RNA sequence: CGUAUGGUGUUAAGCGGUUGCAAAGUCAAUCGGGCUUAAUAGCGAUACGGCUUCUUAAUGAGGU
Number, nucleotide and partner (000 for none) at each position: 001c049002g048003u047004a046005u045006g000007g043008u042009g000010u000011u038012a037013a036014g035015c032016g031017g030018u029019u028020g027021c000022a000023a000024a000025g000026u000027c020028a019029a018030u017031c016032g015033g000034g000035c014036u013037u012038a011039a000040u000041a000042g008043c007044g000045a005046u004047a003048c002049g001050g000051c000052u000053u000054c000055u000056u000057a000058a000059u000060g000061a000062g000063g000064u000
RNA: L31-Gammaproteobacteria ribosomal protein leader